[Rfam]
RNA sequence: UUUUCCAGCCUCCUCAUUGUGCAUGCUGUGUGUCUUCAGUGUUGUUUCCCACAGCGCCUGCAAUGUGGAGGCCAGGAGA
Numbered sequence: 001u002u003u004u005c006c007a008g009c010c011u012c013c014u015c016a017u018u019g020u021g022c023a024u025g026c027u028g029u030g031u032g033u034c035u036u037c038a039g040u041g042u043u044g045u046u047u048c049c050c051a052c053a054g055c056g057c058c059u060g061c062a063a064u065g066u067g068g069a070g071g072c073c074a075g076g077a078g079a
Stems, first nucleotide, its partner, number of pairs: 012068002015065007024056001026054005